[Rfam]
RNA sequence: AUACCUUUCUCGGCCUUUUCGCUAAGAUCAAGUGUAGUAUCUGUUCUUAUCAGUUUAAUAUAUGAUGUGGGCCAAUGGCUCACACGAUAUUAAAUUAAUUUUUCAUUGGGGGAGAGUCUACCACAAUAGCACAAUAGCUUGCUACUGGGGGCUCUCGAGUGUUGCCUUUGCGUUGCACUGUUGCAAAGGUUGGCUCACCCAUU
Numbered sequence: 001a002u003a004c005c006u007u008u009c010u011c012g013g014c015c016u017u018u019u020c021g022c023u024a025a026g027a028u029c030a031a032g033u034g035u036a037g038u039a040u041c042u043g044u045u046c047u048u049a050u051c052a053g054u055u056u057a058a059u060a061u062a063u064g065a066u067g068u069g070g071g072c073c074a075a076u077g078g079c080u081c082a083c084a085c086g087a088u089a090u091u092a093a094a095u096u097a098a099u100u101u102u103u104c105a106u107u108g109g110g111g112g113a114g115a116g117u118c119u120a121c122c123a124c125a126a127u128a129g130c131a132c133a134a135u136a137g138c139u140u141g142c143u144a145c146u147g148g149g150g151g152c153u154c155u156c157g158a159g160u161g162u163u164g165c166c167u168u169u170g171c172g173u174u175g176c177a178c179u180g181u182u183g184c185a186a187a188g189g190u191u192g193g194c195u196c197a198c199c200c201a202u203u
Base pairs, nucleotide, nucleotide: 008027009026010025012023013022014021048067049066050065051064052063068082069081070080071079072078073077112156113155114154115153116152117151118150119149135144136143137142159196161194162193163192164191166188167187168186169185170184171183

The record is a 203-nucleotide RNA sequence from Kingdonia uniflora, which matches "U2 spliceosomal RNA" in Rfam. The match comes from Rfam's covariance-model search (130 bits). Clan: U2 clan. Rfam describes the family as follows. U2 is a small nuclear RNA (snRNA) component of the spliceosome (involved in pre-mRNA splicing).